Rfam assigns this 102-nucleotide RNA sequence from Pontibacillus yanchengensis to the family "Purine riboswitch aptamer".
Taxonomically the source falls in Pontibacillus yanchengensis (Bacteria, Bacillota, Bacilli, Bacillaceae).
RNA sequence: AUUUCAUAAAACGGAUGUACUCAUAUAAUAGUGAGGAUAUGGCUCACGAGUUUCUACCGGAUUACCGUAAAUUUUCCGACUAUGGGUAUUGCUAAUGUUCGU
Numbered sequence: 001a002u003u004u005c006a007u008a009a010a011a012c013g014g015a016u017g018u019a020c021u022c023a024u025a026u027a028a029u030a031g032u033g034a035g036g037a038u039a040u041g042g043c044u045c046a047c048g049a050g051u052u053u054c055u056a057c058c059g060g061a062u063u064a065c066c067g068u069a070a071a072u073u074u075u076c077c078g079a080c081u082a083u084g085g086g087u088a089u090u091g092c093u094a095a096u097g098u099u100c101g102u
Stems, first nucleotide, its partner, number of pairs: 018088008029049001031047005058078004064072001
Pairs were carried over by alignment from the consensus structure, which is taken from published work.